Small nucleolar RNA SNORD79: an 82-nucleotide RNA sequence from Albula goreensis. NCBI's taxonomy places the organism under Eukaryota, Bilateria, Elopocephalai, Elopocephala, Albula.
RNA sequence: CACUGUUGAGGAUGAUUGUUAAAAUACAAUGGGAAUCUCUCUGAGUAAGAGUGAAAAGACAAACUUUUUAACUGAAACGGUG
Numbered sequence: 001c002a003c004u005g006u007u008g009a010g011g012a013u014g015a016u017u018g019u020u021a022a023a024a025u026a027c028a029a030u031g032g033g034a035a036u037c038u039c040u041c042u043g044a045g046u047a048a049g050a051g052u053g054a055a056a057a058g059a060c061a062a063a064c065u066u067u068u069u070a071a072c073u074g075a076a077a078c079g080g081u082g
Stems, first nucleotide, its partner, number of pairs: 001082007
Rfam's curators write: snoRNA U79 or Z22 is found in intron 7 of the gas5 gene in humans and is also present in mice. The family is grouped with related families in Rfam's "SNORD74 clan". Pairs were carried over by alignment from the consensus structure, which was predicted with PFOLD.